This 83-nucleotide sequence from Mesobacillus campisalis belongs to the Rfam family "ZMP/ZTP riboswitch aptamer (pfl RNA motif)". The match comes from Rfam's covariance-model search (56 bits).
RNA sequence: AUGGCCGUGUGUGACUGGCGAGAGCGGAUAACCGCAAGGGAGCACAUUGCAUCGGAGCAAAGCCGUUCGCCUGGGCAGAGGUA
Numbered sequence: 001a002u003g004g005c006c007g008u009g010u011g012u013g014a015c016u017g018g019c020g021a022g023a024g025c026g027g028a029u030a031a032c033c034g035c036a037a038g039g040g041a042g043c044a045c046a047u048u049g050c051a052u053c054g055g056a057g058c059a060a061a062g063c064c065g066u067u068c069g070c071c072u073g074g075g076c077a078g079a080g081g082u083a
Stems, first nucleotide, its partner, number of pairs: 004050002007047006015039002017071005024035004062076003